[Rfam]
RNA sequence: AAGUAGAUGCACCCUGAUGGUUUUCCCCCGGCUUCGGCUGGGGGAUUUUUUU
Number, nucleotide and partner (000 for none) at each position: 001a000002a000003g012004u011005a000006g000007a000008u000009g000010c000011a004012c003013c000014c000015u000016g000017a000018u000019g000020g000021u000022u000023u000024u000025c044026c043027c042028c041029c040030g039031g038032c037033u000034u000035c000036g000037g032038c031039u030040g029041g028042g027043g026044g025045a000046u000047u000048u000049u000050u000051u000052u000
Shown here is a 52-nucleotide RNA sequence from Limnospira platensis, a member of the family "Nitrogen stress-induced RNA 1". The source organism's lineage runs through Bacteria, Bacillati, Cyanobacteriota, Limnospira and Limnospira platensis. The sequence is in the family's curated seed alignment. The family has 17 seed sequences and 962 matches in Rfam 15.1.